A member of the RNA family "DsrA RNA" from Buttiauxella agrestis, 87 nucleotides long. NCBI's taxonomy places the organism under Bacteria, Pseudomonadati, Gammaproteobacteria, Buttiauxella, Buttiauxella agrestis. On this family, see Gottesman, Trends Genet 2005: "Micros for microbes: non-coding regulatory RNAs in bacteria". Rfam describes the family as follows. DsrA RNA regulates both transcription, by overcoming transcriptional silencing by the nucleoid-associated H-NS protein, and translation, by promoting efficient translation of the stress sigma factor, RpoS. These two activities of DsrA can be separated by mutation: the first of three stem-loops of the 85 nucleotide RNA is necessary for RpoS translation but not for anti-H-NS action, while the second stem-loop is essential for antisilencing and less critical for RpoS translation. The third stem-loop, which behaves as a transcription terminator, can be substituted by the trp transcription terminator without loss of either DsrA function. The sequence of the first stem-loop of DsrA is complementary with the upstream leader portion of RpoS messenger RNA, suggesting that pairing of DsrA with the RpoS message might be important for translational regulation.

RNA sequence: CGCACAUCAGAUUUCCUGGUGUAACGAAUUUUUCAAGUGCUUCUUGCGAACGCAAGUUUCAUCCCGGCAUUAAUACUGCCGGGAUUC
Numbered sequence: 001c002g003c004a005c006a007u008c009a010g011a012u013u014u015c016c017u018g019g020u021g022u023a024a025c026g027a028a029u030u031u032u033u034c035a036a037g038u039g040c041u042u043c044u045u046g047c048g049a050a051c052g053c054a055a056g057u058u059u060c061a062u063c064c065c066g067g068c069a070u071u072a073a074u075a076c077u078g079c080c081g082g083g084a085u086u087c
Stems, first nucleotide, its partner, number of pairs: 004022007026059003029055002032052001037047003061085007069077001